Notes:
A member of the RNA family "U12 minor spliceosomal RNA" from Clarias magur, 155 nucleotides long. Clan: U2 clan.
RNA sequence: AUGCCUUAAACUGAUGAGUAAGGAAAAUAACGAUGCGGGGUGACGCCCGCGUCCUCGUGCAUGUUCGCGAGAUGAAUUUUUGAACGGGUACAGGUCUGUCCGCUGAGGUGACUCGUCUACUUCACGAGAUGCCUCGCGGAUUUAGGAUCUGCCCC
Number, nucleotide and partner (000 for none) at each position: 001a000002u000003g000004c023005c022006u021007u020008a019009a000010a000011c000012u000013g000014a000015u000016g000017a000018g000019u008020a007021a006022g005023g004024a000025a000026a000027a000028u000029a000030a000031c000032g053033a052034u051035g050036c049037g048038g047039g046040g000041u000042g000043a000044c000045g000046c039047c038048c037049g036050c035051g034052u033053c032054c071055u070056c069057g068058u067059g000060c000061a000062u000063g000064u000065u000066c000067g058068c057069g056070a055071g054072a000073u000074g000075a000076a000077u000078u000079u000080u000081u000082g000083a000084a000085c000086g154087g153088g152089u151090a000091c000092a150093g149094g148095u147096c146097u145098g000099u000100c000101c139102g000103c000104u000105g000106a134107g133108g132109u131110g130111a000112c128113u127114c126115g125116u124117c000118u000119a000120c000121u000122u000123c000124a116125c115126g114127a113128g112129a000130u110131g109132c108133c107134u106135c000136g000137c000138g000139g101140a000141u000142u000143u000144a000145g097146g096147a095148u094149c093150u092151g089152c088153c087154c086155c000
By type it is a spliceosomal small nuclear RNA.